Overview:
The record is a 193-nucleotide RNA sequence from Pseudomonas aeruginosa, which matches "Pseudomonas sRNA P27" in Rfam. It is annotated as a small RNA. The base pairs follow the family's consensus structure, which was predicted with WAR. A reference for the family is Livny et al. (2006), "Identification of 17 Pseudomonas aeruginosa sRNAs and prediction of sRNA-encoding genes in 10 diverse pathogens using the bioinformatic tool sRNAPredict2", Nucleic Acids Res.
[Rfam]
RNA sequence: CGGGUUUACUCCUGGAUGUUACCGUUUCGUCCAGCCGGGGCCGGACGUCGUUUUGGUGUCUGAUUCGGUAACCGAAUCGGGAGCACCAUCUGCGUAGGCUUGUGGUUUAAGGCUUGCGCCACCUACGGUCUUGGAUAGCCCCCGCCAGGCAGGGACCCCAAUACCUGUGCAGCGGGCAGAACCCGCUGCACGA
Numbered sequence: 001c002g003g004g005u006u007u008a009c010u011c012c013u014g015g016a017u018g019u020u021a022c023c024g025u026u027u028c029g030u031c032c033a034g035c036c037g038g039g040g041c042c043g044g045a046c047g048u049c050g051u052u053u054u055g056g057u058g059u060c061u062g063a064u065u066c067g068g069u070a071a072c073c074g075a076a077u078c079g080g081g082a083g084c085a086c087c088a089u090c091u092g093c094g095u096a097g098g099c100u101u102g103u104g105g106u107u108u109a110a111g112g113c114u115u116g117c118g119c120c121a122c123c124u125a126c127g128g129u130c131u132u133g134g135a136u137a138g139c140c141c142c143c144g145c146c147a148g149g150c151a152g153g154g155a156c157c158c159c160a161a162u163a164c165c166u167g168u169g170c171a172g173c174g175g176g177c178a179g180a181a182c183c184c185g186c187u188g189c190a191c192g193a
Stems, first nucleotide, its partner, number of pairs: 002158006011149004023050002028047005034041002054088006060080007092145003097140004105136010176191001180187001